[Rfam]
RNA sequence: UAACUGAGUAUAAGCGGUUAGUGCGUUCAGUCGCAUGGGACAUUGCUCUACAG
Numbered sequence: 001u002a003a004c005u006g007a008g009u010a011u012a013a014g015c016g017g018u019u020a021g022u023g024c025g026u027u028c029a030g031u032c033g034c035a036u037g038g039g040a041c042a043u044u045g046c047u048c049u050a051c052a053g
Base pairs, nucleotide, nucleotide: 006048007047008046009045010044015038018040019039021036022035023034024033025032
Description: A member of the RNA family "Xanthine riboswitch aptamer (NMT1 RNA)" from Acinetobacter ursingii, 53 nucleotides long. Taxonomically the source falls in Acinetobacter ursingii (Bacteria, Pseudomonadota, Moraxellales, Acinetobacter). It is one of the family's seed sequences.